[Rfam]
RNA: mir-515 microRNA precursor family
Organism: Callithrix jacchus
RNA sequence: UGUCAGGCUGUGACCUUCUAGAGGGAAGCACUUUCUGUUGUCUGAAAUAAAAGAAAGUGUUUCCUUUUAGGUGGUUACGGUUUGAGA
Numbered sequence: 001u002g003u004c005a006g007g008c009u010g011u012g013a014c015c016u017u018c019u020a021g022a023g024g025g026a027a028g029c030a031c032u033u034u035c036u037g038u039u040g041u042c043u044g045a046a047a048u049a050a051a052a053g054a055a056a057g058u059g060u061u062u063c064c065u066u067u068u069a070g071g072u073g074g075u076u077a078c079g080g081u082u083u084g085a086g087a
Stems, first nucleotide, its partner, number of pairs: 001087001003085003007081008017071002020068016038052002